[Rfam]
RNA sequence: AAAAAGGGUCAGUUGGCUAAUUAUGUCACGCUCACCCUUGUUGGUGAGUGUUGUAUGACUAUCAAAACCUAUGGCUGACAUAAUUUUGUGAAAUUAUAGGGUUGACUCGUUAGGUCGACCCUAAA
Numbered sequence: 001a002a003a004a005a006g007g008g009u010c011a012g013u014u015g016g017c018u019a020a021u022u023a024u025g026u027c028a029c030g031c032u033c034a035c036c037c038u039u040g041u042u043g044g045u046g047a048g049u050g051u052u053g054u055a056u057g058a059c060u061a062u063c064a065a066a067a068c069c070u071a072u073g074g075c076u077g078a079c080a081u082a083a084u085u086u087u088g089u090g091a092a093a094u095u096a097u098a099g100g101g102u103u104g105a106c107u108c109g110u111u112a113g114g115u116c117g118a119c120c121c122u123a124a125a
Stems, first nucleotide, its partner, number of pairs: 008079005014028004029050008051074005057068001097123011

Notes
The record is a 125-nucleotide RNA from Trifolium medium, which matches "U11 spliceosomal RNA" in Rfam. The match comes from Rfam's covariance-model search (59 bits). Pairs were carried over by alignment from the consensus structure, which is taken from published work. Taxonomically the source falls in Trifolium (Eukaryota, Spermatophyta, Gunneridae, Papilionoideae). The family's RNA type in Rfam is spliceosomal small nuclear RNA.